[Rfam]
RNA sequence: UUUGGACCUUGGUGAGAUGCCAAGGUGGCUCUUCCAGCCGCCGAUCCGCUGGACAAUC
Dot-bracket structure: .....((((((.........))))))......((((((.........)))))).....
RNA: sul1 RNA
Organism: Maritalea myrionectae